[Rfam]
This 73-nucleotide sequence from Medicago truncatula belongs to the Rfam family "MIR5272 microRNA precursor family". Its family is annotated with RISC complex and miRNA-mediated post-transcriptional gene silencing in the Gene Ontology. It scores 74 bits against the family's covariance model.

RNA sequence: UUGGAUAAGAAUUGAUUUAUGUUUGGAUGCACUUUACUAAAAGUAAUUCUUAUAAGUUAAUGUUGUUGGAUAG
Dot-bracket structure: ..........((((((((..((..((((..((((......)))).))))..))))))))))............

Description: The base pairs follow the family's consensus structure, which was predicted with RNAalifold.